RNA sequence: GGUCAGUGAUGUCUGGCAUGUAUUAGCUGAAAGCUAAUUUGAUGUGUGAUCUAAAUUUACACUGAGACCUU
Numbered sequence: 001g002g003u004c005a006g007u008g009a010u011g012u013c014u015g016g017c018a019u020g021u022a023u024u025a026g027c028u029g030a031a032a033g034c035u036a037a038u039u040u041g042a043u044g045u046g047u048g049a050u051c052u053a054a055a056u057u058u059a060c061a062c063u064g065a066g067a068c069c070u071u
Stems, first nucleotide, its partner, number of pairs: 001069004